Rfam assigns this 100-nucleotide RNA from Halarcobacter anaerophilus to the family "Guanidine-I riboswitch aptamer". NCBI's taxonomy places the organism under Bacteria, Pseudomonadati, Campylobacterota, Epsilonproteobacteria, Halarcobacter. The pairing is the family consensus, mapped onto this sequence. The literature on the family includes a 2017 paper in Structure by Reiss et al., "Structural Basis for Ligand Binding to the Guanidine-I Riboswitch". This family represents a conserved RNA structure found upstream of the ykkC and yxkD genes in Bacillus subtilis and related genes in other bacteria. The function of this family is unclear although it has been suggested that it may function to switch on efflux pumps and detoxification systems in response to harmful environmental molecules.
[Rfam]
RNA sequence: ACAAAAGGCGGCUAGGGUUCCGAUCUAAAUAAAGAUGACUGGUCCGAGAGCUACCGACUCUUAAAUAGGAGUUACACGGAGGGAUAAAAGCCCGGGAGGU
Numbered sequence: 001a002c003a004a005a006a007g008g009c010g011g012c013u014a015g016g017g018u019u020c021c022g023a024u025c026u027a028a029a030u031a032a033a034g035a036u037g038a039c040u041g042g043u044c045c046g047a048g049a050g051c052u053a054c055c056g057a058c059u060c061u062u063a064a065a066u067a068g069g070a071g072u073u074a075c076a077c078g079g080a081g082g083g084a085u086a087a088a089a090g091c092c093c094g095g096g097a098g099g100u
Base pairs, nucleotide, nucleotide: 007055008054010052011051012050015045016044020042021041022039023036024035025034026033056073057072058071059070060069061068062067075095077098081093082092083091